[Rfam]
RNA sequence: UUCCUAGGUUCCCCAUGCAGUCCCCUGUGAGCCUGCAGUAUUUUCCUUAUAUGAUCAGCCCCCCUUGGGUGGCACUGCUCACCUGGAGCCUGACAGUAUUAUAACACGUGACAGUCAAAGUAAGGCCAGGGGCCCCGGGG
Numbered sequence: 001u002u003c004c005u006a007g008g009u010u011c012c013c014c015a016u017g018c019a020g021u022c023c024c025c026u027g028u029g030a031g032c033c034u035g036c037a038g039u040a041u042u043u044u045c046c047u048u049a050u051a052u053g054a055u056c057a058g059c060c061c062c063c064c065u066u067g068g069g070u071g072g073c074a075c076u077g078c079u080c081a082c083c084u085g086g087a088g089c090c091u092g093a094c095a096g097u098a099u100u101a102u103a104a105c106a107c108g109u110g111a112c113a114g115u116c117a118a119a120g121u122a123a124g125g126c127c128a129g130g131g132g133c134c135c136c137g138g139g140g
Stems, first nucleotide, its partner, number of pairs: 001140003005137001007135002010132004020126003055093004060088001062086002067080005
The family of this 140-nucleotide RNA from Castor canadensis is "small Cajal body-specific RNA 17". The source organism's lineage runs through Eukaryota, Eutheria, Boreoeutheria, Glires and Castor. The base pairs follow the family's consensus structure, which is taken from published work. Gene Ontology terms of the family: Cajal body, RNA processing and nucleolus. Rfam describes the family as follows. scaRNAs are a specific class of small nuclear RNAs which localise to the Cajal bodies and guide the modification of RNA polymerase II transcribed spliceosomal RNAs U1, U2, U4, U5 and U12. The complete human U12-22/U4-8 scaRNA is composed of two tandem C/D box domains (termed U12-22 and U4-8).